RNA sequence: UAGUAAGGGCGUGUGGGGGAUGUCUUGGCGCCGGGAGGCUCAAGGGCGCGACAGGCGGCGAAACGCCCGGGGGAGCCGUCAAGUGGGCUCUGAUCCCGGGGUACCCGAGCCAACGGGGGGAACUGAAACAUCUCAUUACCCCCAGGAAGAGAAAGAAACCUCGAUUCCGUCAGUAGCGGCGAGCGAACGCGGACGAGCCCAAACCGUGGGGGUAACCCCACGGGGUUGUAGGACCACCAGUAGGACCUGGACGGGGAGCGGAACGGCGUGGAACCGCCGGCGACACAGGGUGAAAGCCCCGUACGCGAAUCCUGAACAGGCCGGGUGGGAUCCUGAGUACGACCCAACACGUGGAAGUGGGUCCGAAUCCGCGGGGACCAUCCCGCAAGGCUAAAUACUCCCCGGCGACCGAUAGCGUAGAGUAGCGCGAGCGAACGAUGGGAAGAACCCCGAGAGGGGAGGACAGUGAACCUGAAACCACACGCCUACAAG
Numbered sequence: 001u002a003g004u005a006a007g008g009g010c011g012u013g014u015g016g017g018g019g020a021u022g023u024c025u026u027g028g029c030g031c032c033g034g035g036a037g038g039c040u041c042a043a044g045g046g047c048g049c050g051a052c053a054g055g056c057g058g059c060g061a062a063a064c065g066c067c068c069g070g071g072g073g074a075g076c077c078g079u080c081a082a083g084u085g086g087g088c089u090c091u092g093a094u095c096c097c098g099g100g101g102u103a104c105c106c107g108a109g110c111c112a113a114c115g116g117g118g119g120g121a122a123c124u125g126a127a128a129c130a131u132c133u134c135a136u137u138a139c140c141c142c143c144a145g146g147a148a149g150a151g152a153a154a155g156a157a158a159c160c161u162c163g164a165u166u167c168c169g170u171c172a173g174u175a176g177c178g179g180c181g182a183g184c185g186a187a188c189g190c191g192g193a194c195g196a197g198c199c200c201a202a203a204c205c206g207u208g209g210g211g212g213u214a215a216c217c218c219c220a221c222g223g224g225g226u227u228g229u230a231g232g233a234c235c236a237c238c239a240g241u242a243g244g245a246c247c248u249g250g251a252c253g254g255g256g257a258g259c260g261g262a263a264c265g266g267c268g269u270g271g272a273a274c275c276g277c278c279g280g281c282g283a284c285a286c287a288g289g290g291u292g293a294a295a296g297c298c299c300c301g302u303a304c305g306c307g308a309a310u311c312c313u314g315a316a317c318a319g320g321c322c323g324g325g326u327g328g329g330a331u332c333c334u335g336a337g338u339a340c341g342a343c344c345c346a347a348c349a350c351g352u353g354g355a356a357g358u359g360g361g362u363c364c365g366a367a368u369c370c371g372c373g374g375g376g377a378c379c380a381u382c383c384c385g386c387a388a389g390g391c392u393a394a395a396u397a398c399u400c401c402c403c404g405g406c407g408a409c410c411g412a413u414a415g416c417g418u419a420g421a422g423u424a425g426c427g428c429g430a431g432c433g434a435a436c437g438a439u440g441g442g443a444a445g446a447a448c449c450c451c452g453a454g455a456g457g458g459g460a461g462g463a464c465a466g467u468g469a470a471c472c473u474g475a476a477a478c479c480a481c482a483c484g485c486c487u488a489c490a491a492g
Stems, first nucleotide, its partner, number of pairs: 007487010022472001023438002027410002029407007036399002038110002044106003047060003066100007075088003114145001115143005125132002155162002165395001166193005176184002196392004204223007230334003234328005244322001246320004252314005258306003264279005282286001288300003341363006371386005425432002448459004

The record is a 492-nucleotide part of an RNA from Urbifossiella limnaea, which matches "Bacterial large subunit ribosomal RNA" in Rfam.
The organism belongs to Urbifossiella, within Bacteria.